[Rfam]
RNA: Bacteroides sRNA BTnc049
Organism: Bacteroides fragilis
RNA sequence: AAACAGAACGGAAGUUGUGAAACUUCCAAGAAUAGAAUAGUUUAGUUAAGUCUAGUUUAGUUUUUGUGUUGAAGGGCUUCUACCUCAGAGGAGGAUUUAGAAGCCCUUUCUAU
Numbered sequence: 001a002a003a004c005a006g007a008a009c010g011g012a013a014g015u016u017g018u019g020a021a022a023c024u025u026c027c028a029a030g031a032a033u034a035g036a037a038u039a040g041u042u043u044a045g046u047u048a049a050g051u052c053u054a055g056u057u058u059a060g061u062u063u064u065u066g067u068g069u070u071g072a073a074g075g076g077c078u079u080c081u082a083c084c085u086c087a088g089a090g091g092a093g094g095a096u097u098u099a100g101a102a103g104c105c106c107u108u109u110c111u112a113u
Base pairs, nucleotide, nucleotide: 003067004066005065006064007063011026012025013024014023015022016021039058040057042055043054044053045052074106075105076104077103078102079101080100081099082098083094084093085092